[Rfam]
RNA sequence: UUUCUGGCCACAGUUUACUAAACUACAAAUGGCAAGAUUGAAAUUGUUUGUUAUCUGUUUGAUCGGGCAAAAACGCAGCAAUGGCGUAAGACGUAAUGCUCAAUCAAACAAUUUAUGGGCUGUGAGUUGUAGUUUACUGGAUUGCGGAAAAUCUGUACUGAUUUAUUACAGAGUCUCCAAUAAAGAAUGCUGUAUUUGAAUGAAAUUCAGACUCGCCGACAAAUAGGCGCCUCUAUACAAACGAUAGCCGUGAGGCUGGCGGCUUUGUAAAAGACUCGAGGCCAUCGGUAACCAGUAACUCAUCUCUUUUACUUACAGCUCUAUACCAA
Numbered sequence: 001u002u003u004c005u006g007g008c009c010a011c012a013g014u015u016u017a018c019u020a021a022a023c024u025a026c027a028a029a030u031g032g033c034a035a036g037a038u039u040g041a042a043a044u045u046g047u048u049u050g051u052u053a054u055c056u057g058u059u060u061g062a063u064c065g066g067g068c069a070a071a072a073a074c075g076c077a078g079c080a081a082u083g084g085c086g087u088a089a090g091a092c093g094u095a096a097u098g099c100u101c102a103a104u105c106a107a108a109c110a111a112u113u114u115a116u117g118g119g120c121u122g123u124g125a126g127u128u129g130u131a132g133u134u135u136a137c138u139g140g141a142u143u144g145c146g147g148a149a150a151a152u153c154u155g156u157a158c159u160g161a162u163u164u165a166u167u168a169c170a171g172a173g174u175c176u177c178c179a180a181u182a183a184a185g186a187a188u189g190c191u192g193u194a195u196u197u198g199a200a201u202g203a204a205a206u207u208c209a210g211a212c213u214c215g216c217c218g219a220c221a222a223a224u225a226g227g228c229g230c231c232u233c234u235a236u237a238c239a240a241a242c243g244a245u246a247g248c249c250g251u252g253a254g255g256c257u258g259g260c261g262g263c264u265u266u267g268u269a270a271a272a273g274a275c276u277c278g279a280g281g282c283c284a285u286c287g288g289u290a291a292c293c294a295g296u297a298a299c300u301c302a303u304c305u306c307u308u309u310u311a312c313u314u315a316c317a318g319c320u321c322u323a324u325a326c327c328a329a
Stems, first nucleotide, its partner, number of pairs: 003037003007033002014027001016025002056110007066100004073094003078085002117321011134298007146178003152172005186213001188211001190210003195205003215289005229282005242261002245258005
Shown here is a 329-nucleotide RNA sequence from Xenorhabdus szentirmaii, a member of the family "RNase E 5' UTR element". A search with the family's covariance model found it, with a score of 208 bits. This family represents a conserved element found in the 5' UTR of RNase E mRNA. RNase E is a key regulatory enzyme in the pathway of mRNA degradation in E. coli that is able to auto-regulate the degradation of its own mRNA in response to changes in RNase E activity. This rne 5' UTR element acts as a sensor of cellular RNase E concentration enabling tight regulation of RNase E concentration and synthesis. The family's RNA type in Rfam is cis-regulatory element. For this family Rfam cites "An evolutionarily conserved RNA stem-loop functions as a sensor that directs feedback regulation of RNase E gene expression" (Diwa et al., Genes Dev, 2000).